[Rfam]
RNA: mir-137 microRNA precursor family
Organism: Lucilia cuprina
RNA sequence: AAUGGCCACGCGUAUUCUUAGGUUACUAACAUGUAUUUGUUAUUGUUAUUGCUUGAGAAUACACGUAGUUAAC
Numbered sequence: 001a002a003u004g005g006c007c008a009c010g011c012g013u014a015u016u017c018u019u020a021g022g023u024u025a026c027u028a029a030c031a032u033g034u035a036u037u038u039g040u041u042a043u044u045g046u047u048a049u050u051g052c053u054u055g056a057g058a059a060u061a062c063a064c065g066u067a068g069u070u071a072a073c
Stems, first nucleotide, its partner, number of pairs: 003071003008066003012062012025050001027048005032042002